[Rfam]
RNA sequence: UCGACGGGUCGCGACUGGCGUUGAGGUGGGUCACCACCGGGGAGCGACCUGGACGGCAUUUCGACCGCGCGCCUGGGCCGAAGCG
Numbered sequence: 001u002c003g004a005c006g007g008g009u010c011g012c013g014a015c016u017g018g019c020g021u022u023g024a025g026g027u028g029g030g031u032c033a034c035c036a037c038c039g040g041g042g043a044g045c046g047a048c049c050u051g052g053a054c055g056g057c058a059u060u061u062c063g064a065c066c067g068c069g070c071g072c073c074u075g076g077g078c079c080g081a082a083g084c085g
Stems, first nucleotide, its partner, number of pairs: 005051008015041002017073005026037004062080002065077002
RNA: ZMP/ZTP riboswitch aptamer (pfl RNA motif)
Organism: Microbacterium sediminis